[Rfam]
RNA sequence: UCGUUAAGUAAUGACGUGACAGACAAAAUGUCACAACAUCACCCCUUGCCAUGGACACCUCAUUGUCACGUUAUCACCCUCAAUGACGUGACAAUGAAGUGUCUGUGACAAGGCAUGAUGAUGUGACACUCCGUCUGCCGCAUAAUCACUUAACGGAA
Numbered sequence: 001u002c003g004u005u006a007a008g009u010a011a012u013g014a015c016g017u018g019a020c021a022g023a024c025a026a027a028a029u030g031u032c033a034c035a036a037c038a039u040c041a042c043c044c045c046u047u048g049c050c051a052u053g054g055a056c057a058c059c060u061c062a063u064u065g066u067c068a069c070g071u072u073a074u075c076a077c078c079c080u081c082a083a084u085g086a087c088g089u090g091a092c093a094a095u096g097a098a099g100u101g102u103c104u105g106u107g108a109c110a111a112g113g114c115a116u117g118a119u120g121a122u123g124u125g126a127c128a129c130u131c132c133g134u135c136u137g138c139c140g141c142a143u144a145a146u147c148a149c150u151u152a153a154c155g156g157a158a
Stems, first nucleotide, its partner, number of pairs: 001156009011146002014143001016141003020137005027130001029128007037120005044113003048109001050107003054103005070087005
Annotation
A member of the RNA family "MIR4371 microRNA precursor family" from Glycine max, 158 nucleotides long. The base pairs follow the family's consensus structure, which was predicted with RNAalifold. The family is grouped with related families in Rfam's "MIR4387 microRNA precursor clan".